[Rfam]
RNA sequence: CCGUGCUAGAUGGGGAGUUAGCGGUGCCCUGUAACCUGCAAUCCGCUAUAGCAGGAUUGAAUUCCUUGCUUAGACUUUAAUCUGUGGGGUCUGGCCUGUAAAAGUGGUGUUGAUAGUUGGGUCCCACGCAACAGAAAUUCAUAAACUCCGUCAGAUCCGGAAGGAAGCAGCGGUAAGUGAAACCUUCUGUGUGUCGUGGAAUAACCUGAUUUGAGCUAACUAUAUAGGUAACGCUUAUAGAUUAAUAGUCAAAGCAAGGUGCACGG
Numbered sequence: 001c002c003g004u005g006c007u008a009g010a011u012g013g014g015g016a017g018u019u020a021g022c023g024g025u026g027c028c029c030u031g032u033a034a035c036c037u038g039c040a041a042u043c044c045g046c047u048a049u050a051g052c053a054g055g056a057u058u059g060a061a062u063u064c065c066u067u068g069c070u071u072a073g074a075c076u077u078u079a080a081u082c083u084g085u086g087g088g089g090u091c092u093g094g095c096c097u098g099u100a101a102a103a104g105u106g107g108u109g110u111u112g113a114u115a116g117u118u119g120g121g122u123c124c125c126a127c128g129c130a131a132c133a134g135a136a137a138u139u140c141a142u143a144a145a146c147u148c149c150g151u152c153a154g155a156u157c158c159g160g161a162a163g164g165a166a167g168c169a170g171c172g173g174u175a176a177g178u179g180a181a182a183c184c185u186u187c188u189g190u191g192u193g194u195c196g197u198g199g200a201a202u203a204a205c206c207u208g209a210u211u212u213g214a215g216c217u218a219a220c221u222a223u224a225u226a227g228g229u230a231a232c233g234c235u236u237a238u239a240g241a242u243u244a245a246u247a248g249u250c251a252a253a254g255c256a257a258g259g260u261g262c263a264c265g266g
Stems, first nucleotide, its partner, number of pairs: 001266006009058003012030004017025003035055005064259007073250004079243010092230002096227005104220002106217003115211008124199005129191002132189005138181005148173004156165003
The record is a 266-nucleotide sequence from Clostridium niameyense, which matches "Bacterial large signal recognition particle RNA" in Rfam. It is annotated as a non-coding RNA gene. Gene Ontology terms of the family: signal recognition particle, plasma membrane targeting and SRP-dependent cotranslational protein targeting to membrane, signal sequence recognition. Lineage of the source: Bacteria > Bacillati > Eubacteriales > Clostridiaceae > Clostridium. A reference for the family is Rosenblad et al. (2003), "SRPDB: Signal Recognition Particle Database", Nucleic Acids Res. Pairs were carried over by alignment from the consensus structure, which is taken from published work.